Shown here is a 74-nucleotide RNA from Alligator mississippiensis, a member of the family "Mammalian CPEB3 ribozyme". Its family is annotated with RNA nuclease activity in the Gene Ontology. Pairs were carried over by alignment from the consensus structure, which is taken from published work.
RNA sequence: UCAUGCAUUCAAGGCCAUAGCAAAAGUGCUCACAGCAUGGCCUGUCAGAUUCCAGUGAAUCUGCCAAUUCUGUU
Numbered sequence: 001u002c003a004u005g006c007a008u009u010c011a012a013g014g015c016c017a018u019a020g021c022a023a024a025a026g027u028g029c030u031c032a033c034a035g036c037a038u039g040g041c042c043u044g045u046c047a048g049a050u051u052c053c054a055g056u057g058a059a060u061c062u063g064c065c066a067a068u069u070c071u072g073u074u
Stems, first nucleotide, its partner, number of pairs: 013042004019074004024069002026038003046063007